[Rfam]
RNA: Small nucleolar RNA R16
RNA sequence: GGUGGCAAAGGAUGAAUUUUUAUCUUAUCCUACACUCUGAACAACCGUGUAGAUUUUAAUUUCGCUUAUUGAUAUUCUGAUGCCAAU
Numbered sequence: 001g002g003u004g005g006c007a008a009a010g011g012a013u014g015a016a017u018u019u020u021u022a023u024c025u026u027a028u029c030c031u032a033c034a035c036u037c038u039g040a041a042c043a044a045c046c047g048u049g050u051a052g053a054u055u056u057u058a059a060u061u062u063c064g065c066u067u068a069u070u071g072a073u074a075u076u077c078u079g080a081u082g083c084c085a086a087u
Stems, first nucleotide, its partner, number of pairs: 003085005